[Rfam]
RNA: U12 minor spliceosomal RNA
Organism: Chanos chanos
RNA sequence: AUGCCUUAAACUGAUGAGUAAGGAAAAUAACAACAUGGGGUGACGCCCAUGUUCUUACUAACAGUAAGAUGAAUUUUUAGAUGGGCAAAGGUCUACCAACUGUUGAGACACUCACCUACUUUGUGAGAUAUCCAGUUGGAUAAUGAUCUGCCCU
Numbered sequence: 001a002u003g004c005c006u007u008a009a010a011c012u013g014a015u016g017a018g019u020a021a022g023g024a025a026a027a028u029a030a031c032a033a034c035a036u037g038g039g040g041u042g043a044c045g046c047c048c049a050u051g052u053u054c055u056u057a058c059u060a061a062c063a064g065u066a067a068g069a070u071g072a073a074u075u076u077u078u079a080g081a082u083g084g085g086c087a088a089a090g091g092u093c094u095a096c097c098a099a100c101u102g103u104u105g106a107g108a109c110a111c112u113c114a115c116c117u118a119c120u121u122u123g124u125g126a127g128a129u130a131u132c133c134a135g136u137u138g139g140a141u142a143a144u145g146a147u148c149u150g151c152c153c154u
Stems, first nucleotide, its partner, number of pairs: 004023005032053008054068005083153004089149005097138002100135003111127005